[Rfam]
RNA: Aggregatibacter sRNA 54
RNA sequence: GCGUAGUAUGCGCAGCGAUUUAGUAAUAAGAGGACACACACUUUGGACAGCCACAGUCGAUGCCGAUUGGAAUCUUUCAUCUAAAUCUCGCCAUUACUUAUCGGCGAGAUUUUCG
Number, nucleotide and partner (000 for none) at each position: 001g013002c012003g011004u010005a009006g000007u000008a000009u005010g004011c003012g002013c001014a000015g000016c000017g000018a000019u000020u000021u000022a000023g000024u000025a000026a082027u000028a080029a000030g077031a076032g075033g074034a073035c000036a000037c000038a000039c070040a000041c000042u000043u066044u065045g064046g063047a000048c000049a000050g061051c000052c059053a000054c000055a000056g000057u000058c000059g052060a000061u050062g000063c046064c045065g044066a043067u000068u000069g000070g039071a000072a000073u034074c033075u032076u031077u030078c000079a000080u028081c000082u026083a112084a111085a110086u109087c108088u107089c106090g105091c104092c103093a000094u000095u000096a000097c000098u000099u000100a000101u000102c000103g092104g091105c090106g089107a088108g087109a086110u085111u084112u083113u000114c000115g000